[Rfam]
RNA: traJ-II RNA
RNA sequence: GGGCAGGAUAGGUGAAGUUAGCUAACCGGCAAGCCGGCUAACUAUCUUCACUCCCCUUAUUCGCGCCGUCGGCGCUCAACGGGCAUCCUGCUCUGCGAGGC
Numbered sequence: 001g002g003g004c005a006g007g008a009u010a011g012g013u014g015a016a017g018u019u020a021g022c023u024a025a026c027c028g029g030c031a032a033g034c035c036g037g038c039u040a041a042c043u044a045u046c047u048u049c050a051c052u053c054c055c056c057u058u059a060u061u062c063g064c065g066c067c068g069u070c071g072g073c074g075c076u077c078a079a080c081g082g083g084c085a086u087c088c089u090g091c092u093c094u095g096c097g098a099g100g101c
Base pairs, nucleotide, nucleotide: 001093002092003091004090005089006088007087008086009085012051013050014049015048016047017046019044020043021042024039026037027036028035029034054083055082056081063075064074065073066072067071